[Rfam]
Nucleotides: 051
Stems, first nucleotide, its partner, number of pairs: 001020008021051003025048001027046005
Number, partner (000 for none) and nucleotide at each position: 001020c002019g003018a004017c005016c006015g007014g008013c009000a010000c011000a012000c013008g014007c015006c016005g017004g018003u019002c020001g021051u022050c023049u024000a025048c026000c027046c028045c029044g030043g031042u032000a033000c034000c035000u036000g037000a038000c039000a040000c041000g042031g043030c044029c045028g046027g047000a048025g049023a050022g051021a
A member of the RNA family "L17-Actino-Proteobacteria ribosomal protein leader", 51 nucleotides long. Pairs were carried over by alignment from the consensus structure, which is taken from published work.